[Rfam]
RNA sequence: AGAGUUCUAUUUUGAUACUACUACCUUCAUCAUCUCCUCAUGCAGCUAGACCAACACAUUGAUAUCCUAUUUGUAACCCCAACAAUUCUGUAACUAUUUAUAGAUGAAGGAUUGUUGGGGUUACCGAUGGAUCCAAUUUGGUUGAGCUAUCGAAGAAGAAGAUGAAGGUAGUAGUUUCAAAAUGGAACCUU
Numbered sequence: 001a002g003a004g005u006u007c008u009a010u011u012u013u014g015a016u017a018c019u020a021c022u023a024c025c026u027u028c029a030u031c032a033u034c035u036c037c038u039c040a041u042g043c044a045g046c047u048a049g050a051c052c053a054a055c056a057c058a059u060u061g062a063u064a065u066c067c068u069a070u071u072u073g074u075a076a077c078c079c080c081a082a083c084a085a086u087u088c089u090g091u092a093a094c095u096a097u098u099u100a101u102a103g104a105u106g107a108a109g110g111a112u113u114g115u116u117g118g119g120g121u122u123a124c125c126g127a128u129g130g131a132u133c134c135a136a137u138u139u140g141g142u143u144g145a146g147c148u149a150u151c152g153a154a155g156a157a158g159a160a161g162a163u164g165a166a167g168g169u170a171g172u173a174g175u176u177u178c179a180a181a182a183u184g185g186a187a188c189c190u191u
Base pairs, nucleotide, nucleotide: 004188005187006186007185008184009183010182011181012180013179014178015177017175018174019173020172021171022170023169024168025167026166027165028164029163030162031161033159034158035157038156039155041153045147046146047145049143050142051141052140054139056138058137059136060135061134064132065131066130067129069128070127071126073124074123075122076121077120078119079118080117081116082115083114084113085112086111087110088109089108
Dot-bracket structure: ...((((((((((((.(((((((((((((((.(((..((.(...(((.((((.(.(.((((..((((.(((.(((((((((((((((((..................))))))))))))))))).))))))).)))))))))).))).....).))))).))))))))))))))).))))))))))))...